[Rfam]
RNA sequence: ACGGGGAUCAACAGGGUUCCCGCAGGGCCCGUACCGGUACCUGAUACGGCCGGUGCGG
Numbered sequence: 001a002c003g004g005g006g007a008u009c010a011a012c013a014g015g016g017u018u019c020c021c022g023c024a025g026g027g028c029c030c031g032u033a034c035c036g037g038u039a040c041c042u043g044a045u046a047c048g049g050c051c052g053g054u055g056c057g058g
Base pairs, nucleotide, nucleotide: 002022003021004020005019006018007017008016009015029058030057031056033054034053035052036051037050038049